[Rfam]
RNA sequence: CCUUGGCCCCCCCUCCCCGGGGGGGCUGAACUAAUGGCUAGUCUCUCCGGAGGCGACAUCCUCAAAUUGCGGGAAACUCCUAAAGCUCACACUACCAAGCAGCCCCCGAAAGGGAGGCUGUGGCCGGGGUAAUGACCUAGGGUACGGUAAAAACGUGCUGAGAUACAGUGGACGAUCCGCAGCCAAGCCCCUACGUGCGCCAGCAUACGGGGAAGGUCCAGAGACUUGACGGGGGUGGGUGGGCCUGCGCUCCAGGCCUGCCUAAGAUAAAGUCCGGCCCUGCGCGAAAGCGCAGC
Numbered sequence: 001c002c003u004u005g006g007c008c009c010c011c012c013c014u015c016c017c018c019g020g021g022g023g024g025g026c027u028g029a030a031c032u033a034a035u036g037g038c039u040a041g042u043c044u045c046u047c048c049g050g051a052g053g054c055g056a057c058a059u060c061c062u063c064a065a066a067u068u069g070c071g072g073g074a075a076a077c078u079c080c081u082a083a084a085g086c087u088c089a090c091a092c093u094a095c096c097a098a099g100c101a102g103c104c105c106c107c108g109a110a111a112g113g114g115a116g117g118c119u120g121u122g123g124c125c126g127g128g129g130u131a132a133u134g135a136c137c138u139a140g141g142g143u144a145c146g147g148u149a150a151a152a153a154c155g156u157g158c159u160g161a162g163a164u165a166c167a168g169u170g171g172a173c174g175a176u177c178c179g180c181a182g183c184c185a186a187g188c189c190c191c192u193a194c195g196u197g198c199g200c201c202a203g204c205a206u207a208c209g210g211g212g213a214a215g216g217u218c219c220a221g222a223g224a225c226u227u228g229a230c231g232g233g234g235g236u237g238g239g240u241g242g243g244c245c246u247g248c249g250c251u252c253c254a255g256g257c258c259u260g261c262c263u264a265a266g267a268u269a270a271a272g273u274c275c276g277g278c279c280c281u282g283c284g285c286g287a288a289a290g291c292g293c294a295g296c
Base pairs, nucleotide, nucleotide: 057237058236059235060234061233063231068181069180070179071178072177073176078172079171080170182217183216188211189210190209196205197204198203221275223274224273225272226271227270239261240260241259242258243257244256245255246254247253281294282293283292284291285290
This 296-nucleotide sequence from Fusarium piperis belongs to the Rfam family "Group I catalytic intron". From the family's description: Group I catalytic introns are large self-splicing ribozymes. They catalyse their own excision from mRNA, tRNA and rRNA precursors in a wide range of organisms. The core secondary structure consists of 9 paired regions (P1-P9). NCBI's taxonomy places the organism under Eukaryota, saccharomyceta, Hypocreomycetidae, Fusarium, Fusarium solani species complex. The base pairs follow the family's consensus structure, which is taken from published work.